[Rfam]
RNA sequence: GUUUGACACGGUCCAACGGUGGCCGGUCUGGCCCCCACGUUCGGCCGUGGCGCGAUGAC
Numbered sequence: 001g002u003u004u005g006a007c008a009c010g011g012u013c014c015a016a017c018g019g020u021g022g023c024c025g026g027u028c029u030g031g032c033c034c035c036c037a038c039g040u041u042c043g044g045c046c047g048u049g050g051c052g053c054g055a056u057g058a059c
Stems, first nucleotide, its partner, number of pairs: 007049007016041001018035002021033005
Annotation:
Rfam assigns this 59-nucleotide RNA from Anaeromyxobacter sp. K to the family "Selenocysteine insertion sequence 3". The source organism's lineage runs through Bacteria, Myxococcota, Myxococcales, Cystobacterineae and Anaeromyxobacter.